[Rfam]
RNA: Eukaryotic small subunit ribosomal RNA, nucleotides 1642 to 1806
Organism: Diacronema lutheri
RNA sequence: CCGCCCGUCGCUCCUACCGAUUGGAUGGUCCGGUGAGGUUUUCGGACUGGCGCAGUGCCGAGGUUCGCCUUGGUGCUGCGCCGGGAAGUCACCCAAACCUUAUCAUCUAGAGGAAGGAGAAGUCGUAACAAGGUUUCCGUAGGUGAACCUGCGGAAGGAUCAUUA
Numbered sequence: 001c002c003g004c005c006c007g008u009c010g011c012u013c014c015u016a017c018c019g020a021u022u023g024g025a026u027g028g029u030c031c032g033g034u035g036a037g038g039u040u041u042u043c044g045g046a047c048u049g050g051c052g053c054a055g056u057g058c059c060g061a062g063g064u065u066c067g068c069c070u071u072g073g074u075g076c077u078g079c080g081c082c083g084g085g086a087a088g089u090c091a092c093c094c095a096a097a098c099c100u101u102a103u104c105a106u107c108u109a110g111a112g113g114a115a116g117g118a119g120a121a122g123u124c125g126u127a128a129c130a131a132g133g134u135u136u137c138c139g140u141a142g143g144u145g146a147a148c149c150u151g152c153g154g155a156a157g158g159a160u161c162a163u164u165a
Stems, first nucleotide, its partner, number of pairs: 001132001003129001006125002009122001011119005017113002021109001023108007032099003037094002040091001043088001047084011059072004134157010